[Rfam]
RNA sequence: AUAACCCCCGGGGGGUGCCGGAAGCAAGGCCGGCUGAGAGUGUAUCCCAAGCAGAUACUGACCCUUAUACCUGAUCUGGGUAAUGCCAGCGUAGGAACGUUUAAGCGUGUUUGC
Numbered sequence: 001a002u003a004a005c006c007c008c009c010g011g012g013g014g015g016u017g018c019c020g021g022a023a024g025c026a027a028g029g030c031c032g033g034c035u036g037a038g039a040g041u042g043u044a045u046c047c048c049a050a051g052c053a054g055a056u057a058c059u060g061a062c063c064c065u066u067a068u069a070c071c072u073g074a075u076c077u078g079g080g081u082a083a084u085g086c087c088a089g090c091g092u093a094g095g096a097a098c099g100u101u102u103a104a105g106c107g108u109g110u111u112u113g114c
Base pairs, nucleotide, nucleotide: 009099010098011065012064013063014062017034018033019032020031021030042058043057044056045055070095071094072093073092076089077088078087079086
Rfam assigns this 114-nucleotide sequence from Saccharibacillus brassicae to the family "TPP riboswitch aptamer (THI element)". The organism belongs to Saccharibacillus, within Bacteria.